[Rfam]
RNA sequence: GAAAAAGCAAAGUGUUCCAUUUGUCUCUUAGAAUGGGUCUCUCGUAAAUUUCGGAAAAUUUACUUCAUUGUUUUUUAGGUGAACCUCAUUGCAUUAUAAUACUAGCGAAGGUUCAAGAAAAUGAUGGAACAUUU
Dot-bracket structure: ....(((...((...((((..............)))).))........)))............(((((((((.......(((((((......................)))))))....)))))))))......

This 134-nucleotide RNA from Coptis chinensis belongs to the Rfam family "Small nucleolar RNA snoR74". It is annotated as an H/ACA-box small nucleolar RNA. Its family is annotated with RNA processing and nucleolus in the Gene Ontology. The family has 9 seed sequences and 1,404 matches in Rfam 15.1. The literature on the family includes a 2002 paper in Curr Biol by Marker et al., "Experimental RNomics: identification of 140 candidates for small non-messenger RNAs in the plant Arabidopsis thaliana".